The family of this 80-nucleotide RNA sequence from Tripterygium wilfordii is "Small nucleolar RNA Z159/U59". The match comes from Rfam's covariance-model search (49 bits). A reference for the family is Chen et al. (2003), "The high diversity of snoRNAs in plants: identification and comparative study of 120 snoRNA genes from Oryza sativa", Nucleic Acids Res. Pairs were carried over by alignment from the consensus structure, which was predicted with PFOLD. Gene Ontology terms of the family: nucleolus and RNA processing.
[Rfam]
RNA sequence: AUCUCUUAUGAUGCAAUUAAACUUUCAUUCUCCUGAGCUUUAUAGUGCUGAAAAAACUUGGAGACCUGAGCUGAAGAGUU
Number, nucleotide and partner (000 for none) at each position: 001a000002u000003c078004u077005c076006u075007u000008a000009u000010g000011a000012u000013g000014c000015a000016a000017u000018u000019a000020a000021a000022c000023u000024u000025u000026c000027a000028u000029u000030c000031u000032c000033c000034u000035g000036a000037g000038c000039u000040u000041u000042a000043u000044a000045g000046u000047g000048c000049u000050g000051a000052a000053a000054a000055a000056a000057c000058u000059u000060g000061g000062a000063g000064a000065c000066c000067u000068g000069a000070g000071c000072u000073g000074a000075a006076g005077a004078g003079u000080u000